The record is a 289-nucleotide RNA sequence from Phasianus colchicus, which matches "Retroviral 3'UTR stability element" in Rfam.
Its family is annotated with regulation of RNA stability in the Gene Ontology.
Taxonomically the source falls in Phasianus (Eukaryota, Euteleostomi, Sauria, Galliformes).
RNA sequence: UAGCGCUUCACGCAUUAGUACAGUAAGAGCUUCGCUUAGGUCGUAUAGAACCCUCUCUUAGUCAAUGGAACACUCCUGUAUUUGUGAUAAAGAAGCGGUCAGGAUCCUAUCGCUUGCUGCAUGACUUGCGCGCUGUUAAUGCUAAACUAGUUCCUUUCGGGGCAGUCCAACAGGGGGCACCAGUUCUUUCAGCGCUCCCGCGUGGCUGGCCCCUGAUGGUACUGGACCUCAAGGAUUGCUUCUUUUCUAUUCCCCUUGCGGAGCAGGACCGCGAAGCUUUUGCGUUCAC
Numbered sequence: 001u002a003g004c005g006c007u008u009c010a011c012g013c014a015u016u017a018g019u020a021c022a023g024u025a026a027g028a029g030c031u032u033c034g035c036u037u038a039g040g041u042c043g044u045a046u047a048g049a050a051c052c053c054u055c056u057c058u059u060a061g062u063c064a065a066u067g068g069a070a071c072a073c074u075c076c077u078g079u080a081u082u083u084g085u086g087a088u089a090a091a092g093a094a095g096c097g098g099u100c101a102g103g104a105u106c107c108u109a110u111c112g113c114u115u116g117c118u119g120c121a122u123g124a125c126u127u128g129c130g131c132g133c134u135g136u137u138a139a140u141g142c143u144a145a146a147c148u149a150g151u152u153c154c155u156u157u158c159g160g161g162g163c164a165g166u167c168c169a170a171c172a173g174g175g176g177g178c179a180c181c182a183g184u185u186c187u188u189u190c191a192g193c194g195c196u197c198c199c200g201c202g203u204g205g206c207u208g209g210c211c212c213c214u215g216a217u218g219g220u221a222c223u224g225g226a227c228c229u230c231a232a233g234g235a236u237u238g239c240u241u242c243u244u245u246u247c248u249a250u251u252c253c254c255c256u257u258g259c260g261g262a263g264c265a266g267g268a269c270c271g272c273g274a275a276g277c278u279u280u281u282g283c284g285u286u287c288a289c
Base pairs, nucleotide, nucleotide: 012120013119014118017114018113019112051068052067086106087105088104092100141272142271147267148266150264151263152262153261159213160212161211162210163209165207167205168204169203173199174198175197176196177195178194180192182189183188215251216250217249218248219247